[Rfam]
RNA sequence: AGCACUUGGUGUGUUUUUGUUCAGCUGUUGGACAAAGGCCAGUUGAACGGGUGCAAAAAAUAAAUCCUCUUUUGCAACCCAGAACUCACUGCUCAGUAUGAGUUUUGAUGCAUACCAGAAGGAAUAUA
Numbered sequence: 001a002g003c004a005c006u007u008g009g010u011g012u013g014u015u016u017u018u019g020u021u022c023a024g025c026u027g028u029u030g031g032a033c034a035a036a037g038g039c040c041a042g043u044u045g046a047a048c049g050g051g052u053g054c055a056a057a058a059a060a061u062a063a064a065u066c067c068u069c070u071u072u073u074g075c076a077a078c079c080c081a082g083a084a085c086u087c088a089c090u091g092c093u094c095a096g097u098a099u100g101a102g103u104u105u106u107g108a109u110g111c112a113u114a115c116c117a118g119a120a121g122g123a124a125u126a127u128a
Stems, first nucleotide, its partner, number of pairs: 002054007010045001013039008025030001064125002067122002070119003074115001080107009

A member of the RNA family "Small nucleolar RNA SNORA40" from Mus musculus, 128 nucleotides long. The literature on the family includes a 1997 paper in J Mol Biol by Ofengand and Bakin, "Mapping to nucleotide resolution of pseudouridine residues in large subunit ribosomal RNAs from representative eukaryotes, prokaryotes, archaebacteria, mitochondria and chloroplasts". The family's RNA type in Rfam is H/ACA-box small nucleolar RNA. The snoRNA ACA 40 belongs to the H/ACA family of snoRNAs and guides the pseudouridylation of 28S rRNA subunit at position U4565. NB This family has a high threshold value to exclude a large number of closely related sequences that do not appear to have conserved H and ACA boxes, and may be pseudogenes. The base pairs follow the family's consensus structure, which was predicted with RNAalifold. Its family is annotated with RNA processing and nucleolus in the Gene Ontology. The organism belongs to Mus, within Eukaryota.